[Rfam]
RNA sequence: AAAAAGGGUCGGUUGGUUUCGCUCCACUAACCCUACCCUACUAAUGAACUUCUAUUUUAAAUAUGCCAUGCCCGCCCUAGUAAGGUGGGUGUUAUAUGGCUAUCAAGACAUAUGACCGACAUAAUUUGUGGGACUUUUAAAGGGUUGGCUCGCUUUGGCCAACCCUCUU
Numbered sequence: 001a002a003a004a005a006g007g008g009u010c011g012g013u014u015g016g017u018u019u020c021g022c023u024c025c026a027c028u029a030a031c032c033c034u035a036c037c038c039u040a041c042u043a044a045u046g047a048a049c050u051u052c053u054a055u056u057u058u059a060a061a062u063a064u065g066c067c068a069u070g071c072c073c074g075c076c077c078u079a080g081u082a083a084g085g086u087g088g089g090u091g092u093u094a095u096a097u098g099g100c101u102a103u104c105a106a107g108a109c110a111u112a113u114g115a116c117c118g119a120c121a122u123a124a125u126u127u128g129u130g131g132g133a134c135u136u137u138u139a140a141a142g143g144g145u146u147g148g149c150u151c152g153c154u155u156u157g158g159c160c161a162a163c164c165c166u167c168u169u
Base pairs, nucleotide, nucleotide: 008120009119010118011117012116025091026090027089028088030086031085032084034082035081036080092115093114094113095112096111097110098109141166142165143164144163145162146161147160148159150158151157152156